[Rfam]
RNA: Pseudoknot of upstream pseudoknot domain (UPD) of the 3'UTR
Organism: Furovirus tritici
RNA sequence: AACCUAUUUGCUCGGGUUGAGUGCAA
Dot-bracket structure: (((((..[[[[..)))))....]]]]
Numbered sequence: 001a002a003c004c005u006a007u008u009u010g011c012u013c014g015g016g017u018u019g020a021g022u023g024c025a026a
Stems, first nucleotide, its partner, number of pairs: 001018005008026004